[Rfam]
RNA: Small nucleolar RNA ZL2
Nucleotides: 076
Stems, first nucleotide, its partner, number of pairs: 003074005011066004018060002020057001022055003025050002028047002033042001
Number, partner (000 for none) and nucleotide at each position: 001000a002000c003074c004073c005072u006071c007070a008000a009000g010000u011066g012065a013064u014063g015000a016000a017000u018060a019059c020057a021000u022055a023054g024053c025050c026049c027000u028047g029046g030000g031000a032000g033042g034000u035000c036000c037000a038000u039000g040000a041000c042033c043000a044000g045000a046029u047028u048000g049026g050025g051000a052000u053024g054023u055022u056000u057020u058000g059019g060018u061000a062000c063014u064013g065012u066011c067000u068000g069000a070007u071006g072005a073004g074003g075000c076000c